This 168-nucleotide sequence from Actinomadura logoneensis belongs to the Rfam family "c-di-AMP riboswitch aptamer (ydaO/yuaA leader)". The source organism's lineage runs through Bacteria, Bacillati, Actinomycetota, Streptosporangiales and Actinomadura.

[Rfam]
Nucleotides: 168
Stems, first nucleotide, its partner, number of pairs: 011151004018029003030146006040048001049131003057107002060104006110125004
Number, partner (000 for none) and nucleotide at each position: 001000g002000c003000g004000a005000c006000c007000g008000g009000a010000c011151c012150g013149c014148c015000g016000a017000a018029u019028c020027c021000c022000g023000c024000g025000a026000g027020g028019g029018a030146a031145c032144c033143g034142g035141g036000g037000a038000c039000c040048c041000a042000c043000a044000c045000c046000c047000c048040g049131g050130g051129g052000u053000g054000a055000a056000u057107c058106g059000g060104c061103g062102c063101a064100c065099g066000u067000c068000a069000c070000g071000g072000g073000c074000g075000u076000c077000c078000u079000c080000a081000a082000c083000c084000g085000g086000g087000a088000c089000g090000g091000c092000g093000c094000c095000g096000c097000g098000c099065c100064g101063u102062g103061c104060g105000g106058c107057g108000u109000a110125g111124g112123g113122c114000g115000a116000c117000u118000c119000c120000u121000g122113g123112c124111c125110c126000g127000a128000a129051c130050c131049c132000g133000u134000c135000a136000g137000c138000u139000a140000a141035c142034c143033c144032g145031g146030u147000a148014g149013g150012c151011g152000g153000c154000a155000c156000a157000c158000g159000a160000a161000g162000a163000g164000g165000a166000g167000a168000a